[Rfam]
RNA sequence: UGCAAGAAUCUUUGAAGCUCAGGAGGGAUAGCGCCAUGGGUGGACUUGUGAAAGGUUUCUCAAAAAGCCUGUUUGUCUAUUGCGCUAUCUAUCCUGAGUUUCAUGGGUUCUUAAU
Numbered sequence: 001u002g003c004a005a006g007a008a009u010c011u012u013u014g015a016a017g018c019u020c021a022g023g024a025g026g027g028a029u030a031g032c033g034c035c036a037u038g039g040g041u042g043g044a045c046u047u048g049u050g051a052a053a054g055g056u057u058u059c060u061c062a063a064a065a066a067g068c069c070u071g072u073u074u075g076u077c078u079a080u081u082g083c084g085c086u087a088u089c090u091a092u093c094c095u096g097a098g099u100u101u102c103a104u105g106g107g108u109u110c111u112u113a114a115u
Stems, first nucleotide, its partner, number of pairs: 010106001016100009026090009
RNA: MIR390 microRNA precursor family